[Rfam]
RNA sequence: GGGCAAGCGCCGCCGAAUCGAGCGCCGUCCGGCGCUGUGCGAGCCGGGGACCCAGGUCCCUCGGGGUGAAUCCGCGAAGCAGCGGUAGGGCGCACUCUUCCCGCCCGAACCCGUCAGCUAACCCGGUAGGCGGUCGGUGAAGAAGGG
Numbered sequence: 001g002g003g004c005a006a007g008c009g010c011c012g013c014c015g016a017a018u019c020g021a022g023c024g025c026c027g028u029c030c031g032g033c034g035c036u037g038u039g040c041g042a043g044c045c046g047g048g049g050a051c052c053c054a055g056g057u058c059c060c061u062c063g064g065g066g067u068g069a070a071u072c073c074g075c076g077a078a079g080c081a082g083c084g085g086u087a088g089g090g091c092g093c094a095c096u097c098u099u100c101c102c103g104c105c106c107g108a109a110c111c112c113g114u115c116a117g118c119u120a121a122c123c124c125g126g127u128a129g130g131c132g133g134u135c136g137g138u139g140a141a142g143a144a145g146g147g
Stems, first nucleotide, its partner, number of pairs: 011132004018042003043127006053063001064112003072085004088106004
About this RNA
Rfam assigns this 147-nucleotide RNA sequence from Dactylosporangium siamense to the family "c-di-AMP riboswitch aptamer (ydaO/yuaA leader)". The match comes from Rfam's covariance-model search (84 bits). The base pairs follow the family's consensus structure. Lineage of the source: Bacteria > Actinomycetota > Actinomycetes > Micromonosporaceae > Dactylosporangium.